[Rfam]
RNA sequence: UUUCCUAGAUUGCUUUCAAGGUCAUUUCUUUCUGAAACCCCGUUCCCAUAAAUUCAGUAUCCAAAGCUGGUUGUUGUAUCUAUGGAAAUAAGGGUUUCAGAAUGAAAUGAUCUUGGACGCAAUCUAGGAGU
Numbered sequence: 001u002u003u004c005c006u007a008g009a010u011u012g013c014u015u016u017c018a019a020g021g022u023c024a025u026u027u028c029u030u031u032c033u034g035a036a037a038c039c040c041c042g043u044u045c046c047c048a049u050a051a052a053u054u055c056a057g058u059a060u061c062c063a064a065a066g067c068u069g070g071u072u073g074u075u076g077u078a079u080c081u082a083u084g085g086a087a088a089u090a091a092g093g094g095u096u097u098c099a100g101a102a103u104g105a106a107a108u109g110a111u112c113u114u115g116g117a118c119g120c121a122a123u124c125u126a127g128g129a130g131u
Stems, first nucleotide, its partner, number of pairs: 003129011015117014030102011042089003046085005052079002055076005061070003
RNA: MIR1882 microRNA precursor family